[Rfam]
RNA: c-di-GMP-I riboswitch aptamer
RNA sequence: GCAGUUUCCAGCCAAACCCGUCGCGAGGCGGGGGCGGAAAACCACGGAUCCCCCAGGGAUGGCCGGGUUGCCGGA
Numbered sequence: 001g002c003a004g005u006u007u008c009c010a011g012c013c014a015a016a017c018c019c020g021u022c023g024c025g026a027g028g029c030g031g032g033g034g035c036g037g038a039a040a041a042c043c044a045c046g047g048a049u050c051c052c053c054c055a056g057g058g059a060u061g062g063c064c065g066g067g068u069u070g071c072c073g074g075a
Stems, first nucleotide, its partner, number of pairs: 012037002017032006040069004045065003048060005